[Rfam]
RNA sequence: AAUUCCUCAUAAUAAUAUGAUAGUUGAAUGCCCUUGCUACAUUAUUAUUAGGAGUUCAUUUUGUUUUAAUGGGAGGUGUUUAGUCCGUAGGCGUCUUAUAGGACGAAUCGGGCAUAUAUAGAGCGAAAUCGUUCUAUAUAUCUUUAGAAGAUUCACCUACCCGGUUUAAA
Numbered sequence: 001a002a003u004u005c006c007u008c009a010u011a012a013u014a015a016u017a018u019g020a021u022a023g024u025u026g027a028a029u030g031c032c033c034u035u036g037c038u039a040c041a042u043u044a045u046u047a048u049u050a051g052g053a054g055u056u057c058a059u060u061u062u063g064u065u066u067u068a069a070u071g072g073g074a075g076g077u078g079u080u081u082a083g084u085c086c087g088u089a090g091g092c093g094u095c096u097u098a099u100a101g102g103a104c105g106a107a108u109c110g111g112g113c114a115u116a117u118a119u120a121g122a123g124c125g126a127a128a129u130c131g132u133u134c135u136a137u138a139u140a141u142c143u144u145u146a147g148a149a150g151a152u153u154c155a156c157c158u159a160c161c162c163g164g165u166u167u168a169a170a
Base pairs, nucleotide, nucleotide: 032052033051034050060169061168063166070163071162072161073160075157076156077155083113084112085111086110087109092105093104094103095102096101115140116139117138118137119136120135

A member of the RNA family "R2 RNA element" from Drosophila kikkawai, 170 nucleotides long.